RNA sequence: UAAAAAGUUCUGAUUAGAAAAAGUAACUGAUAAAUUCCUCAUCCAGAGAGUCCGGAUAGCUGAGAACCGGGCAGAUAUUAUCAGCGAACCCACAUCUAUGAACUGCUAAGGUGAACCUGUCGCAUUAGCCUUAGCCGAAUGGUUUCGUUAUCCAAGUUGACAAUCAGUCAACAUGAGGUUAUCAGUGUGAGCUGGUAACGAAUUAAGGUGGAACCACGGUUAAACGUCCUUUUA
Numbered sequence: 001u002a003a004a005a006a007g008u009u010c011u012g013a014u015u016a017g018a019a020a021a022a023g024u025a026a027c028u029g030a031u032a033a034a035u036u037c038c039u040c041a042u043c044c045a046g047a048g049a050g051u052c053c054g055g056a057u058a059g060c061u062g063a064g065a066a067c068c069g070g071g072c073a074g075a076u077a078u079u080a081u082c083a084g085c086g087a088a089c090c091c092a093c094a095u096c097u098a099u100g101a102a103c104u105g106c107u108a109a110g111g112u113g114a115a116c117c118u119g120u121c122g123c124a125u126u127a128g129c130c131u132u133a134g135c136c137g138a139a140u141g142g143u144u145u146c147g148u149u150a151u152c153c154a155a156g157u158u159g160a161c162a163a164u165c166a167g168u169c170a171a172c173a174u175g176a177g178g179u180u181a182u183c184a185g186u187g188u189g190a191g192c193u194g195g196u197a198a199c200g201a202a203u204u205a206a207g208g209u210g211g212a213a214c215c216a217c218g219g220u221u222a223a224a225c226g227u228c229c230u231u232u233u234a
Stems, first nucleotide, its partner, number of pairs: 007103002015098004027084005039075002050072006106134007136147003178199007205231004216227003
RNA: T-box leader